[Rfam]
RNA sequence: AGAAUCAGCCCUACAUCAAGUUGCGAGUGAGGGAGAUUCAGCCUUGAUUC
Dot-bracket structure: .[[.....[[.[[[.(((((......]]..]]]...]]....)))))...
Numbered sequence: 001a002g003a004a005u006c007a008g009c010c011c012u013a014c015a016u017c018a019a020g021u022u023g024c025g026a027g028u029g030a031g032g033g034a035g036a037u038u039c040a041g042c043c044u045u046g047a048u049u050c
Stems, first nucleotide, its partner, number of pairs: 002038002009033002012031001013028002016047005